[Rfam]
RNA sequence: CCGACAUGGACAUCCAGCGAGGUUGCUCUCCUGGCUCUGUCCUCGUGGCGUGUGGGAGCGUAGCUUUCGAGCCGAGACGUACAGUCCCGUUCCACAAUGUCGGAGAGAAAGCUCUGUCCCCGGCCGCUGGUCGGAGAGGACGGGCGUCCUGCAUAUUCCUACAUCCUCCCAGAGUCCCUUGGGGCCGUUACUGGGGGGCUAAACCAUGCAGGGCACAUUA
Numbered sequence: 001c002c003g004a005c006a007u008g009g010a011c012a013u014c015c016a017g018c019g020a021g022g023u024u025g026c027u028c029u030c031c032u033g034g035c036u037c038u039g040u041c042c043u044c045g046u047g048g049c050g051u052g053u054g055g056g057a058g059c060g061u062a063g064c065u066u067u068c069g070a071g072c073c074g075a076g077a078c079g080u081a082c083a084g085u086c087c088c089g090u091u092c093c094a095c096a097a098u099g100u101c102g103g104a105g106a107g108a109a110a111g112c113u114c115u116g117u118c119c120c121c122g123g124c125c126g127c128u129g130g131u132c133g134g135a136g137a138g139g140a141c142g143g144g145c146g147u148c149c150u151g152c153a154u155a156u157u158c159c160u161a162c163a164u165c166c167u168c169c170c171a172g173a174g175u176c177c178c179u180u181g182g183g184g185c186c187g188u189u190a191c192u193g194g195g196g197g198g199c200u201a202a203a204c205c206a207u208g209c210a211g212g213g214c215a216c217a218u219u220a
Base pairs, nucleotide, nucleotide: 001103002102003101004100005099006098007097008042009041010040011039012038014034015033016032019028020027021026045095046094047093048092054088055087056086057085058082060080061079064074148212149211150210151209152208153207154206165198166197167196168195169194170193174185175184176183177182